[Rfam]
Description
Potassium channel RNA editing signal: a 114-nucleotide RNA sequence from Conger conger. The family's consensus secondary structure is taken from published work. The source organism's lineage runs through Eukaryota, Vertebrata, Elopocephalai, Elopomorpha and Conger. Rfam classes the family as a cis-regulatory element. The family has 85 seed sequences and 14,095 matches in Rfam 15.1.
RNA sequence: GUCGGCUACGGAGACAUGCACCCCGUAACCAUAGGGGGUAAAAUCGUCGGGUCCCUGUGUGCAAUCGCAGGCGUGUUAACCAUUGCCUUGCCGGUGCCAGUAAUUGUUUCUAAU
Numbered sequence: 001g002u003c004g005g006c007u008a009c010g011g012a013g014a015c016a017u018g019c020a021c022c023c024c025g026u027a028a029c030c031a032u033a034g035g036g037g038g039u040a041a042a043a044u045c046g047u048c049g050g051g052u053c054c055c056u057g058u059g060u061g062c063a064a065u066c067g068c069a070g071g072c073g074u075g076u077u078a079a080c081c082a083u084u085g086c087c088u089u090g091c092c093g094g095u096g097c098c099a100g101u102a103a104u105u106g107u108u109u110c111u112a113a114u
Stems, first nucleotide, its partner, number of pairs: 001114002004111002008107004014101002018097004037077004050062001
Dot-bracket structure: ((.((..((((..((..((((...............((((.........(...........)...........))))................))))..))..))))..)).))
Overview
Its family is annotated with adenosine to inosine editing in the Gene Ontology. Rfam describes the family as follows. This family represents a group of sequences related to the human potassium channel Kv1.1 hairpin element which directs the efficient modification of an adenosine to inosine by an adenosine deaminase acting on RNA (ADAR). The ADAR modification causes an isoleucine/valine recoding event which lies in the ion-conducting pore of the potassium channel. It is thought that this editing event targets the process of fast inactivation and allows a more rapid recovery from inactivation at negative potentials.